[Rfam]
RNA sequence: GAUCGAAUAAGGCGGUCGCGCCGCAUCCGACAAUGGGCCGGUACAUUUGCCUGAUGCGACGCUGGCGCGUCUUAUCAGGCC
Numbered sequence: 001g002a003u004c005g006a007a008u009a010a011g012g013c014g015g016u017c018g019c020g021c022c023g024c025a026u027c028c029g030a031c032a033a034u035g036g037g038c039c040g041g042u043a044c045a046u047u048u049g050c051c052u053g054a055u056g057c058g059a060c061g062c063u064g065g066c067g068c069g070u071c072u073u074a075u076c077a078g079g080c081c
Stems, first nucleotide, its partner, number of pairs: 003030003007026002011022004049080008058071005
The family of this 81-nucleotide RNA from Escherichia coli is "Nucleoid-associated noncoding RNA 4 (CssrE)". The organism belongs to Escherichia coli, within Bacteria. The match comes from Rfam's covariance-model search (64 bits). Pairs were carried over by alignment from the consensus structure, which is taken from published work. In E. coli small RNA transcribed from repeated extragenic palindromic element (REP325) called nucleoid-associated ncRNA 4 (nRNA4) collaborates HU protein in condensing the DNA. The secondary structure but not the sequence of the RNA is important in nucleoid condensation. On this family, see Peng et al., PLoS One 2011: "An integrated approach for finding overlooked genes in Shigella". It is annotated as a small RNA. Rfam 15.1 lists 870 matches to the family in 32 species.